[Rfam]
RNA sequence: UAGAUCCAUGGAGACCACUGGUGGCACAUAAAUCAAAAAUGAUGACUAUAGGUUUGGAAGUCUGAGGUCCAA
Numbered sequence: 001u002a003g004a005u006c007c008a009u010g011g012a013g014a015c016c017a018c019u020g021g022u023g024g025c026a027c028a029u030a031a032a033u034c035a036a037a038a039a040u041g042a043u044g045a046c047u048a049u050a051g052g053u054u055u056g057g058a059a060g061u062c063u064g065a066g067g068u069c070c071a072a
Stems, first nucleotide, its partner, number of pairs: 003069004
Notes: Small nucleolar RNA SNORD113/SNORD114 family: a 72-nucleotide RNA sequence from Ictidomys tridecemlineatus. For this family Rfam cites "Identification of tandemly-repeated C/D snoRNA genes at the imprinted human 14q32 domain reminiscent of those at the Prader-Willi/Angelman syndrome region" (Cavaille et al., Hum Mol Genet, 2002). Rfam describes the family as follows. The imprinted human domain at 14q32 contains two clusters of tandemly repeated small nucleolar RNAs named 14q(I) and 14q(II) snoRNAs. These two clusters are named SNORD113 and SNORD114 respectively in the HGNC approved gene symbol nomenclature. The snoRNAs found in both clusters are clearly related and are represented here by a single family. These snoRNAs are intron encoded and are processed from the tissue-specific non-coding human MEG8 RNA, which lies downstream of the imprinted genes DLK1 and GTL2. snoRNAs 14q(I) and 14q(II) differ from previously identified C/D box snoRNAs in their expression profiles and lack of complementarity to rRNA and snRNA. Homologues of these snoRNAs are found in the imprinted non-coding mouse transcript Rian, and in the rat non-coding Bsr (brain-specific repetitive) RNA. Lineage of the source: Eukaryota > Gnathostomata > Dipnotetrapodomorpha > Glires > Ictidomys.